[Rfam]
RNA sequence: GACGACCGGCCGGAACCACUGCGCUCCGGCCCACAAGUGGAGGCUCCGAUCUCCCACCUGACCGCCCCGAGGGGCGGCGGGUCACCGGUCAGGCGGCGCCCAUCGUUCCGUACGGACGAUGGAGUCGCCCGAAGACAGCGCCCCGCGGUUGGCCCGUGGCGGUGUUCCGGUAAUCCCAGGAGCCCCGCCUGUGUCCCGUCCGGGGCAUUUUUC
Numbered sequence: 001g002a003c004g005a006c007c008g009g010c011c012g013g014a015a016c017c018a019c020u021g022c023g024c025u026c027c028g029g030c031c032c033a034c035a036a037g038u039g040g041a042g043g044c045u046c047c048g049a050u051c052u053c054c055c056a057c058c059u060g061a062c063c064g065c066c067c068c069g070a071g072g073g074g075c076g077g078c079g080g081g082u083c084a085c086c087g088g089u090c091a092g093g094c095g096g097c098g099c100c101c102a103u104c105g106u107u108c109c110g111u112a113c114g115g116a117c118g119a120u121g122g123a124g125u126c127g128c129c130c131g132a133a134g135a136c137a138g139c140g141c142c143c144c145g146c147g148g149u150u151g152g153c154c155c156g157u158g159g160c161g162g163u164g165u166u167c168c169g170g171u172a173a174u175c176c177c178a179g180g181a182g183c184c185c186c187g188c189c190u191g192u193g194u195c196c197c198g199u200c201c202g203g204g205g206c207a208u209u210u211u212u213c
Stems, first nucleotide, its partner, number of pairs: 004090006012027002028083005034060002037057004041052002062077006092129003096126001100122008140206006146198003155193003158189005164183005
Dot-bracket structure: ...((((((..((............))(((((.((.((((((........)).)))).)).((((((....)))))).))))).)))))).(((.(...((((((((.......))))))))...))))..........(((((((((......((((((((.(((((..........))))).))))).)))..)))..)))))).......
The family of this 213-nucleotide RNA from Streptomyces sp. CC53 is "Streptomyces RNA 1601".
A search with the family's covariance model found it, with a score of 161 bits.
NCBI's taxonomy places the organism under Bacteria, Bacillati, Actinomycetota, Kitasatosporales, Streptomyces.
Rfam describes the family as follows. Identified by deep sequencing of transcriptome at the end of exponential growth phase. Appears longer on northern blot than sequencing transcript. Streptomyces specific.